RNA: Small nucleolar RNA SNORA14
Organism: Sinocyclocheilus rhinocerous
RNA sequence: CUGCAUUCUCCAAAACCCCCCGUGAGCUGCGUGUAGCUUCUGGGACAAGAAGGAAUGCAACAGAAAGCCAAGAACUUUCCAAAGCUACAUGUCUUCGCAGUGACUAUUAGCUAUUUCACGUCUUGAACACU
Number, nucleotide and partner (000 for none) at each position: 001c000002u000003g058004c057005a056006u055007u000008c000009u050010c049011c000012a000013a000014a000015a000016c000017c000018c044019c043020c042021c000022g040023u000024g000025a038026g037027c036028u000029g000030c000031g000032u000033g000034u000035a000036g027037c026038u025039u000040c022041u000042g020043g019044g018045a000046c000047a000048a000049g010050a009051a000052g000053g000054a000055a006056u005057g004058c003059a000060a000061c000062a000063g131064a000065a000066a000067g000068c000069c125070a124071a123072g122073a121074a000075c000076u000077u000078u000079c000080c000081a000082a000083a112084g111085c110086u109087a108088c000089a000090u000091g104092u103093c000094u000095u100096c000097g000098c000099a000100g095101u000102g000103a092104c091105u000106a000107u000108u087109a086110g085111c084112u083113a000114u000115u000116u000117c000118a000119c000120g000121u073122c072123u071124u070125g069126a000127a000128c000129a000130c000131u063